Notes
The record is a 111-nucleotide RNA from Paenibacillus crassostreae, which matches "TPP riboswitch aptamer (THI element)" in Rfam. A search with the family's covariance model found it, with a score of 66 bits.
RNA sequence: UAUAUGUACCAGGGGUGCUGGAAUUGGCUGGCUGAGAUUGUGUCCCUCUAGACACUGACCCUUAUACCUGAUCUGGAUAAUGCCAGCGUAGGAACGUAACCGAUAUGAUAC
Numbered sequence: 001u002a003u004a005u006g007u008a009c010c011a012g013g014g015g016u017g018c019u020g021g022a023a024u025u026g027g028c029u030g031g032c033u034g035a036g037a038u039u040g041u042g043u044c045c046c047u048c049u050a051g052a053c054a055c056u057g058a059c060c061c062u063u064a065u066a067c068c069u070g071a072u073c074u075g076g077a078u079a080a081u082g083c084c085a086g087c088g089u090a091g092g093a094a095c096g097u098a099a100c101c102g103a104u105a106u107g108a109u110a111c
Stems, first nucleotide, its partner, number of pairs: 007098003011062004017032005040055004067092004073086004